[Rfam]
RNA: Bacterial RNase P class B
Organism: Amylolactobacillus amylophilus
RNA sequence: AAUUUCGGGCAAUCGCGGUCAUUUAGUUGGCUGAGGAAAGUCCACGCUCGCACGAACUGUGAUGUUCGUAGUGUUUGUACUUAGCCCAAUAAGCUAAGGUAUCGUAAGAUAACGGCGGAAAAAGCACUAAGGUUUCGGCUAUGUGUGAAUAUCCUGAAAAGUGCCACAGUGACGGAGCAAUCUGGGAAACCAGGUUGGUGGAACGAGGUAAACCCUGCAAGCGGGCAACCCAAACUUUUGGUAGGGGCGCUUAUGUCUAAGGAAACGAACUAAAGACAUAGACAUUUUUGUAGAUAGAUGAUUGCUGAAGGUAAAUCUCCCAAAUUUACCGGAACAAAACGUGGCUUAUAGAA
Numbered sequence: 001a002a003u004u005u006c007g008g009g010c011a012a013u014c015g016c017g018g019u020c021a022u023u024u025a026g027u028u029g030g031c032u033g034a035g036g037a038a039a040g041u042c043c044a045c046g047c048u049c050g051c052a053c054g055a056a057c058u059g060u061g062a063u064g065u066u067c068g069u070a071g072u073g074u075u076u077g078u079a080c081u082u083a084g085c086c087c088a089a090u091a092a093g094c095u096a097a098g099g100u101a102u103c104g105u106a107a108g109a110u111a112a113c114g115g116c117g118g119a120a121a122a123a124g125c126a127c128u129a130a131g132g133u134u135u136c137g138g139c140u141a142u143g144u145g146u147g148a149a150u151a152u153c154c155u156g157a158a159a160a161g162u163g164c165c166a167c168a169g170u171g172a173c174g175g176a177g178c179a180a181u182c183u184g185g186g187a188a189a190c191c192a193g194g195u196u197g198g199u200g201g202a203a204c205g206a207g208g209u210a211a212a213c214c215c216u217g218c219a220a221g222c223g224g225g226c227a228a229c230c231c232a233a234a235c236u237u238u239u240g241g242u243a244g245g246g247g248c249g250c251u252u253a254u255g256u257c258u259a260a261g262g263a264a265a266c267g268a269a270c271u272a273a274a275g276a277c278a279u280a281g282a283c284a285u286u287u288u289u290g291u292a293g294a295u296a297g298a299u300g301a302u303u304g305c306u307g308a309a310g311g312u313a314a315a316u317c318u319c320c321c322a323a324a325u326u327u328a329c330c331g332g333a334a335c336a337a338a339a340c341g342u343g344g345c346u347u348a349u350a351g352a353a
Base pairs, nucleotide, nucleotide: 004353005352006351007349008306009305010304011303012302013301014300016033017032018031019030020029021028038347039346040345042344043343044342045341046340047225048224049223050222051221052069053068054067055066056065057064075220076219077218078217079216080098081097082096083095084094085093099113100111101110102109103108114215115214117154118153119152124146125145126144127143131140132139133138161213162212163209164208165207178197179196180195181194182193183192184191185190229246230245231244250281251280253279254278255277256276257275282291283290284289310330311329312328313327314326315325316324